[Rfam]
The record is a 124-nucleotide RNA sequence from Propithecus coquereli, which matches "U4atac minor spliceosomal RNA" in Rfam. Clan: U4 clan. A search with the family's covariance model found it, with a score of 58 bits. On this family, see Lorkovic et al., RNA 2005: "Evolutionary conservation of minor U12-type spliceosome between plants and humans". The base pairs follow the family's consensus structure, which is taken from published work. U4atac is an essential component of the minor U12-type spliceosome complex which is required for removal of the rarer class of eukaryotic introns (AT-AC, U12-type).
RNA sequence: GCUAUCCUAUUAUCAGGGUUGUUACUGUUCAGUGAGCAUGCAGUAAGGGCAGUGCUGACAACGCCCACAUGACAUGCCCAUAUUAACCAGAGCUCUGCUUUGCCUUGGCACAAUUUUUAGAAAA
Numbered sequence: 001g002c003u004a005u006c007c008u009a010u011u012a013u014c015a016g017g018g019u020u021g022u023u024a025c026u027g028u029u030c031a032g033u034g035a036g037c038a039u040g041c042a043g044u045a046a047g048g049g050c051a052g053u054g055c056u057g058a059c060a061a062c063g064c065c066c067a068c069a070u071g072a073c074a075u076g077c078c079c080a081u082a083u084u085a086a087c088c089a090g091a092g093c094u095c096u097g098c099u100u101u102g103c104c105u106u107g108g109c110a111c112a113a114u115u116u117u118u119a120g121a122a123a124a
Stems, first nucleotide, its partner, number of pairs: 006018003020057002024053007036044002081110001083108003088102006